[Rfam]
RNA sequence: GGGACAGUCGGAUCCUUGGCUGUGUCCCCCGCACCCUGUGCUCCCGGGCCUGCGCUGUUGGAUUCGGGCUCCUGGCCGAGCAGCCUCCU
Numbered sequence: 001g002g003g004a005c006a007g008u009c010g011g012a013u014c015c016u017u018g019g020c021u022g023u024g025u026c027c028c029c030c031g032c033a034c035c036c037u038g039u040g041c042u043c044c045c046g047g048g049c050c051u052g053c054g055c056u057g058u059u060g061g062a063u064u065c066g067g068g069c070u071c072c073u074g075g076c077c078g079a080g081c082a083g084c085c086u087c088c089u
Base pairs, nucleotide, nucleotide: 001087002086003085007081008080009078010077011076014075015074018071019070021068023066024065025062026061028060029057031055032054034052038050040049041048042047
Overview
This 89-nucleotide RNA sequence from Vulpes vulpes belongs to the Rfam family "mir-8799 microRNA precursor family". Clan: mir-8791 microRNA precursor clan.